Background: HIV primer binding site (PBS): a 99-nucleotide RNA from Lentivirus humimdef1. By type it is a cis-regulatory element. A reference for the family is Damgaard et al. (2004), "RNA interactions in the 5' region of the HIV-1 genome", J Mol Biol. The base pairs follow the family's consensus structure, which was predicted with PFOLD. From the family's description: This family consists of several, structured HIV primer binding sites (PBSs). tRNA(3)(Lys) binds to the PBS to initiate reverse transcription. Gene Ontology term of the family: tRNA binding. NCBI's taxonomy places the organism under Viruses, Artverviricota, Ortervirales, Retroviridae, Lentivirus humimdef1.

RNA sequence: CUCUGGUAACUAGAGAUCCCUCAGACCUCUUUAGUCCGUGUGGAAAAUCUCUAGCAGUGGCGCCCGAACAGGGACUUGAAAGUGAAAGUAGAACCGGAG
Numbered sequence: 001c002u003c004u005g006g007u008a009a010c011u012a013g014a015g016a017u018c019c020c021u022c023a024g025a026c027c028u029c030u031u032u033a034g035u036c037c038g039u040g041u042g043g044a045a046a047a048u049c050u051c052u053a054g055c056a057g058u059g060g061c062g063c064c065c066g067a068a069c070a071g072g073g074a075c076u077u078g079a080a081a082g083u084g085a086a087a088g089u090a091g092a093a094c095c096g097g098a099g
Stems, first nucleotide, its partner, number of pairs: 001099007010054008018043002020040001022038001024036003056089001058087001061084002063073003075082002